[Rfam]
Nucleotides: 267
Base pairs, nucleotide, nucleotide: 001239003237004236005235007233008232009231011212013210014209015208018164019163020162021161022160023159024158025157027155028154029153034061035060036059043058044057045056046055047054069131070130071129072128075125083096084095107122108121109120174194176192213225214224215223216222245267246266247265248264249263250262251261252260253259254258
Number, partner (000 for none) and nucleotide at each position: 001239g002000a003237c004236a005235a006000u007233a008232g009231c010000a011212u012000a013210g014209a015208u016000g017000a018164c019163u020162c021161a022160a023159g024158g025157g026000u027155g028154g029153u030000c031000g032000g033000c034061u035060c036059a037000c038000u039000u040000a041000u042000c043058c044057c045056u046055c047054c048000a049000g050000g051000g052000a053000g054047g055046g056045a057044g058043g059036u060035g061034a062000u063000g064000c065000c066000u067000c068000u069131g070130a071129c072128a073000g074000u075125a076000u077000u078000c079000g080000a081000a082000a083096c084095g085000c086000u087000g088000a089000u090000g091000c092000u093000g094000a095084u096083g097000a098000u099000u100000u101000c102000u103000u104000u105000c106000g107122g108121u109120a110000c111000g112000c113000u114000g115000g116000u117000u118000g119000u120109u121108g122107c123000g124000a125075u126000c127000a128072u129071g130070u131069c132000u133000g134000a135000u136000a137000a138000a139000a140000a141000c142000c143000a144000a145000a146000a147000a148000a149000a150000a151000u152000a153029a154028c155027c156000a157025c158024c159023c160022u161021u162020g163019a164018g165000u166000g167000a168000c169000a170000g171000c172000u173000c174194a175000u176192g177000a178000u179000g180000g181000g182000u183000a184000g185000g186000u187000u188000a189000u190000u191000u192176u193000u194174u195000c196000g197000c198000u199000c200000u201000u202000u203000c204000a205000u206000g207000g208015g209014u210013c211000g212011a213225u214224u215223c216222c217000u218000u219000u220000g221000a222216g223215g224214a225213a226000u227000c228000c229000u230000u231009g232008c233007u234000a235005u236004u237003g238000c239001u240000u241000g242000a243000c244000c245267g246266u247265u248264u249263g250262g251261u252260g253259u254258u255000a256000c257000c258254a259253g260252c261251a262250c263249c264248a265247g266246g267245c